[Rfam]
RNA sequence: CCGUCUUCUAUGAAGGUAAAUUCCUCAAUUUUCGUUUGAGAAUGGAAUUUACCGGAUGCAUUGACGG
Numbered sequence: 001c002c003g004u005c006u007u008c009u010a011u012g013a014a015g016g017u018a019a020a021u022u023c024c025u026c027a028a029u030u031u032u033c034g035u036u037u038g039a040g041a042a043u044g045g046a047a048u049u050u051a052c053c054g055g056a057u058g059c060a061u062u063g064a065c066g067g
Stems, first nucleotide, its partner, number of pairs: 001067005015053010030041003
Description: Selenocysteine insertion sequence 1: a 67-nucleotide RNA from Leptotrombidium deliense. Its family is annotated with selenocysteine incorporation in the Gene Ontology. A reference for the family is Walczak et al. (1996), "A novel RNA structural motif in the selenocysteine insertion element of eukaryotic selenoprotein mRNAs", RNA.